[Rfam]
RNA sequence: GUCGAGCUAAGUAGCGGUAGCUUGUAACCCGAGUGGGGACGAUAAGAUGGUGGAACACUGGUUCGGUGUCACGGGUCGGUUCUGGUUUGGCAUGUUUCUGAGCUGCCCAGUCCAAGCUGUGAGUAGUCUGUGUGUGUCGAGCGAAGGCUUGGCUCAGGCAGGUUCUAAAGUCGGAGGGUAAUGCGUGAGGCUGGUUUCACAGAGCAGCGAUCACUUCCCGCUUACAGCAGUGGACGGAUUACGGUUCAGCGCCGGUCAGAUCCACUAUGGCUCGCUGGUUCGAUCUCUCAGCUGAACCACCAUUUUU
Numbered sequence: 001g002u003c004g005a006g007c008u009a010a011g012u013a014g015c016g017g018u019a020g021c022u023u024g025u026a027a028c029c030c031g032a033g034u035g036g037g038g039a040c041g042a043u044a045a046g047a048u049g050g051u052g053g054a055a056c057a058c059u060g061g062u063u064c065g066g067u068g069u070c071a072c073g074g075g076u077c078g079g080u081u082c083u084g085g086u087u088u089g090g091c092a093u094g095u096u097u098c099u100g101a102g103c104u105g106c107c108c109a110g111u112c113c114a115a116g117c118u119g120u121g122a123g124u125a126g127u128c129u130g131u132g133u134g135u136g137u138c139g140a141g142c143g144a145a146g147g148c149u150u151g152g153c154u155c156a157g158g159c160a161g162g163u164u165c166u167a168a169a170g171u172c173g174g175a176g177g178g179u180a181a182u183g184c185g186u187g188a189g190g191c192u193g194g195u196u197u198c199a200c201a202g203a204g205c206a207g208c209g210a211u212c213a214c215u216u217c218c219c220g221c222u223u224a225c226a227g228c229a230g231u232g233g234a235c236g237g238a239u240u241a242c243g244g245u246u247c248a249g250c251g252c253c254g255g256u257c258a259g260a261u262c263c264a265c266u267a268u269g270g271c272u273c274g275c276u277g278g279u280u281c282g283a284u285c286u287c288u289c290a291g292c293u294g295a296a297c298c299a300c301c302a303u304u305u306u307u
Base pairs, nucleotide, nucleotide: 001040002039003038004023005022006021007020008019009018028037029036030035044306045305046304047303048302049301050300051299052298053297056294057293058291059290060289061285063283064282065281066280068279069278070277071276072274073273074272075271076270077269078263079262081260082259083258084257085256088254089253090252098249099248100247101246102245103244104243105242107237108236110235111234112233113232114231116228117227118226119225120224121223122222123221124220125164126163127162128161129160130159131158133156134155136153137152138151139150140149141148142147165170173218174217175216176215177214184209185208186207191202192201193200